[Rfam]
RNA: Small nucleolar RNA snR191
RNA sequence: CGCCAUCGCUAAGUCAAGACUCCUUCCUGUGCCCUCGUGUCACUAUUUUUUUUCAAUGGAAGUUUGUCUGUUACAGCUUUGGUAGAUUGAUUCUUACCCGCAACCUCGAUCUCUUUCUGAGAUCAGGGUUUGACGUUGCUUUCGUUUUGAAGACUUUGUCGUAUAGGGCUAGUCUGUUUUGUAUUGAGUUGAGCUCUGCUUCCGCCUUUUUAUUUUGGUGGCAUCAUAGCAGUCCUCUUAGUUACAUUUCAAACAUCU
Numbered sequence: 001c002g003c004c005a006u007c008g009c010u011a012a013g014u015c016a017a018g019a020c021u022c023c024u025u026c027c028u029g030u031g032c033c034c035u036c037g038u039g040u041c042a043c044u045a046u047u048u049u050u051u052u053u054c055a056a057u058g059g060a061a062g063u064u065u066g067u068c069u070g071u072u073a074c075a076g077c078u079u080u081g082g083u084a085g086a087u088u089g090a091u092u093c094u095u096a097c098c099c100g101c102a103a104c105c106u107c108g109a110u111c112u113c114u115u116u117c118u119g120a121g122a123u124c125a126g127g128g129u130u131u132g133a134c135g136u137u138g139c140u141u142u143c144g145u146u147u148u149g150a151a152g153a154c155u156u157u158g159u160c161g162u163a164u165a166g167g168g169c170u171a172g173u174c175u176g177u178u179u180u181g182u183a184u185u186g187a188g189u190u191g192a193g194c195u196c197u198g199c200u201u202c203c204g205c206c207u208u209u210u211u212a213u214u215u216u217g218g219u220g221g222c223a224u225c226a227u228a229g230c231a232g233u234c235c236u237c238u239u240a241g242u243u244a245c246a247u248u249u250c251a252a253a254c255a256u257c258u
Base pairs, nucleotide, nucleotide: 003082004081005080017069018068019067020066023062024061025060026059027058029043030042031041033039093172094171097168098167099166102130103129104128105127106126108124109123110122111121112120113119133159134158138154140152141151142150143149144148175251176250180246181245182244191237192236193235197231198230199229200228202221203220204219205218206217